[Rfam]
RNA: glmS glucosamine-6-phosphate activated ribozyme aptamer
Nucleotides: 145
Stems, first nucleotide, its partner, number of pairs: 020032004042073005050062004074087004091135007106119005
Number, partner (000 for none) and nucleotide at each position: 001000a002000a003000u004000u005000a006000u007000u008000a009000a010000a011000a012000a013000g014000c015000g016000c017000c018000a019000g020032a021031c022030c023029u024000u025000u026000u027000a028000c029023a030022g031021g032020u033000g034000a035000c036000g037000a038000g039000g040000a041000g042073a043072g044071a045070g046069c047000u048000u049000a050062u051061c052060g053059a054000a055000a056000u057000a058000u059053u060052c061051g062050g063000c064000g065000g066000g067000u068000a069046g070045c071044u072043c073042u074087a075086g076085g077084g078000a079000c080000u081000g082000c083000a084077c085076u086075c087074u088000a089000c090000a091135g092134a093133c094132u095131a096130g097129u098000c099000u100000a101000a102000a103000a104000g105000u106119u107118a108117g109116u110115u111000g112000g113000a114000a115110a116109a117108c118107u119106a120000u121000a122000a123000c124000a125000a126000a127000a128000a129097a130096c131095u132094a133093g134092u135091c136000a137000c138000g139000c140000a141000g142000c143000u144000g145000g